[Rfam]
Nucleotides: 081
Stems, first nucleotide, its partner, number of pairs: 001015006045063007
Number, partner (000 for none) and nucleotide at each position: 001015g002014c003013a004012a005011c006010u007000u008000g009000c010006a011005g012004u013003u014002g015001u016000u017000u018000u019000a020000a021000u022000a023000a024000a025000a026000u027000u028000g029000g030000u031000u032000c033000c034000u035000u036000a037000g038000g039000u040000u041000a042000u043000u044000u045063g046062c047061c048060c049059u050058u051057c052000u053000u054000c055000u056000u057051g058050a059049a060048g061047g062046g063045c064000u065000u066000u067000u068000u069000u070000u071000u072000a073000g074000a075000a076000u077000u078000u079000u080000u081000u